[Rfam]
RNA sequence: AAACAUGAACCAUUCACAACGGAUCGUCCGGCACGUACCUGCCGGUGAAGGGAUUGAUA
Numbered sequence: 001a002a003a004c005a006u007g008a009a010c011c012a013u014u015c016a017c018a019a020c021g022g023a024u025c026g027u028c029c030g031g032c033a034c035g036u037a038c039c040u041g042c043c044g045g046u047g048a049a050g051g052g053a054u055u056g057a058u059a
Stems, first nucleotide, its partner, number of pairs: 010051002013049004028045006

msiK RNA: a 59-nucleotide sequence from Pseudarthrobacter chlorophenolicus. The source organism's lineage runs through Bacteria, Bacillati, Actinomycetes, Micrococcaceae and Pseudarthrobacter chlorophenolicus.